Background: The record is a 113-nucleotide sequence from Pedobacter cryotolerans, which matches "SAM riboswitch aptamer (S box leader)" in Rfam. Rfam links the family to the GO term regulation of gene expression. It scores 73 bits against the family's covariance model. The source organism's lineage runs through Bacteria, Bacteroidota, Sphingobacteriia, Sphingobacteriales and Pedobacter.
RNA sequence: GAUUUAUAAAGAAGUGGCGAGAGACAGGCUCUAUAACCCACUGGCAACCCUCCCUUACGGAGAAGGUGCCAAUUCCUGACCACUCAACAUGGUGUUGUUUGGAAAUAUAAAUU
Numbered sequence: 001g002a003u004u005u006a007u008a009a010a011g012a013a014g015u016g017g018c019g020a021g022a023g024a025c026a027g028g029c030u031c032u033a034u035a036a037c038c039c040a041c042u043g044g045c046a047a048c049c050c051u052c053c054c055u056u057a058c059g060g061a062g063a064a065g066g067u068g069c070c071a072a073u074u075c076c077u078g079a080c081c082a083c084u085c086a087a088c089a090u091g092g093u094g095u096u097g098u099u100u101g102g103a104a105a106u107a108u109a110a111a112u113u
Stems, first nucleotide, its partner, number of pairs: 001113008013042005021031003025078004043070004048066002050062004074105001080102003085097004